Rfam assigns this 105-nucleotide RNA sequence from Tetracentron sinense to the family "MIR397 microRNA precursor family". The base pairs follow the family's consensus structure, which was predicted with WAR. Lineage of the source: Eukaryota > Viridiplantae > Spermatophyta > Trochodendraceae > Tetracentron. For this family Rfam cites "High throughput approaches reveal splicing of primary microRNA transcripts and tissue specific expression of mature microRNAs in Vitis vinifera" (Mica et al., BMC Genomics, 2009).
Nucleotides: 105
Stems, first nucleotide, its partner, number of pairs: 006102006013095016030078003
Number, partner (000 for none) and nucleotide at each position: 001000c002000c003000a004000a005000a006102a007101a008100a009099c010098a011097u012000c013095a014094u015093u016092g017091a018090g019089u020088g021087c022086a023085g024084c025083g026082u027081u028080g029000a030078u031077g032076a033000a034000c035000u036000c037000c038000a039000a040000u041000u042000c043000c044000c045000a046000c047000a048000u049000u050000u051000u052000u053000u054000g055000a056000u057000g058000u059000u060000u061000u062000g063000a064000u065000g066000g067000g068000c069000g070000g071000u072000g073000a074000u075000u076032u077031c078030a079000c080028c081027a082026g083025c084024g085023c086022u087021g088020u089019a090018c091017u092016c093015g094014a095013u096000c097011a098010u099009g100008u101007u102006u103000u104000u105000a